[Rfam]
RNA: Mammalian CPEB3 ribozyme
RNA sequence: AGCUGAAGAUAUAGGCCGUAGCAGAAGUGCUCAUGGCAUGGCCCUGUCAGUUUCCAACGAAUCUGUGUUCUGCU
Numbered sequence: 001a002g003c004u005g006a007a008g009a010u011a012u013a014g015g016c017c018g019u020a021g022c023a024g025a026a027g028u029g030c031u032c033a034u035g036g037c038a039u040g041g042c043c044c045u046g047u048c049a050g051u052u053u054c055c056a057a058c059g060a061a062u063c064u065g066u067g068u069u070c071u072g073c074u
Stems, first nucleotide, its partner, number of pairs: 014043004020074007027039003048065003052061003
Dot-bracket structure: .............[[[[..((((((((((.......)))]]]]....(((.(((....))).)))..)))))))